[Rfam]
Nucleotides: 092
Base pairs, nucleotide, nucleotide: 001018002017003016004015023047024046025045026044032038049092050091051090052089053088054087055086056085057084058083065078066077067076068075
Number, partner (000 for none) and nucleotide at each position: 001018g002017u003016c004015c005000a006000g007000g008000u009000c010000g011000c012000g013000g014000c015004g016003g017002a018001c019000c020000a021000c022000a023047g024046c025045c026044a027000g028000a029000c030000g031000c032038u033000c034000a035000c036000a037000a038032g039000c040000g041000c042000c043000a044026u045025g046024g047023c048000g049092a050091c051090a052089g053088c054087c055086g056085g057084c058083c059000a060000u061000a062000c063000c064000a065078g066077g067076g068075u069000u070000a071000c072000g073000a074000g075068g076067c077066c078065c079000a080000u081000c082000a083058g084057g085056c086055c087054g088053g089052c090051u091050g092049u